[Rfam]
RNA sequence: AAUGCUGUGAUGAGAUGAACACCUUUGGUGUUUUGGGCAGUGGGAAAAAGUUGGAUUUUUAAUCCUUCUCCGUGAGCCCUCUAAUUAACGACUUCUCCUUCCACUGAGCAUU
Dot-bracket structure: (((((......................................................................................................)))))